A member of the RNA family "Acido-Lenti-1 RNA" from Candidatus Vecturithrix granuli, 46 nucleotides long. A search with the family's covariance model found it, with a score of 49 bits. NCBI's taxonomy places the organism under Bacteria, Candidatus Moduliflexota, Candidatus Vecturitrichales, Candidatus Vecturitrichaceae, Candidatus Vecturithrix. The family's RNA type in Rfam is small RNA.

Nucleotides: 046
Base pairs, nucleotide, nucleotide: 001020002019003018004017005016006015007014008013033045034044035043036042037041
Number, partner (000 for none) and nucleotide at each position: 001020c002019c003018c004017a005016c006015c007014g008013u009000u010000g011000a012000a013008a014007c015006g016005g017004u018003g019002g020001g021000c022000u023000a024000u025000u026000g027000u028000c029000a030000a031000c032000c033045g034044u035043c036042c037041u038000u039000c040000c041037a042036g043035g044034a045033c046000g